[Rfam]
RNA sequence: GUACCUUCAAAUAAUAAUUAAUCUUUUCUUAAUUAUUCGAGUAUACCCCAUAAUAUACAAUGAAGGUAAAAUUUUGACUCCCUUUAGUAUAGGUCUAUACGUCAUAGUAUAGACCUUUUUU
Numbered sequence: 001g002u003a004c005c006u007u008c009a010a011a012u013a014a015u016a017a018u019u020a021a022u023c024u025u026u027u028c029u030u031a032a033u034u035a036u037u038c039g040a041g042u043a044u045a046c047c048c049c050a051u052a053a054u055a056u057a058c059a060a061u062g063a064a065g066g067u068a069a070a071a072u073u074u075u076g077a078c079u080c081c082c083u084u085u086a087g088u089a090u091a092g093g094u095c096u097a098u099a100c101g102u103c104a105u106a107g108u109a110u111a112g113a114c115c116u117u118u119u120u121u
Stems, first nucleotide, its partner, number of pairs: 002068008022040002026035001041051002081093002084089001094113007

Source information:
Rfam assigns this 121-nucleotide sequence from Staphylococcus gallinarum to the family "RNA Staph. aureus H". The literature on the family includes a 2009 paper in Nucleic Acids Res by Geissmann et al., "A search for small noncoding RNAs in Staphylococcus aureus reveals a conserved sequence motif for regulation".